[Rfam]
Source information: This 69-nucleotide RNA from Galleria mellonella belongs to the Rfam family "mir-11 microRNA precursor family". A search with the family's covariance model found it, with a score of 74 bits.

RNA sequence: UUUUGUGGCUAGAACUCCGGCUGUGACUUGUGUUUUAGUCACAUCACAGUCAGAGUUCUAGCUAUACGG
Numbered sequence: 001u002u003u004u005g006u007g008g009c010u011a012g013a014a015c016u017c018c019g020g021c022u023g024u025g026a027c028u029u030g031u032g033u034u035u036u037a038g039u040c041a042c043a044u045c046a047c048a049g050u051c052a053g054a055g056u057u058c059u060a061g062c063u064a065u066a067c068g069g
Stems, first nucleotide, its partner, number of pairs: 004066003009061009021049006030042003
Its Rfam clan is "mir-6 clan".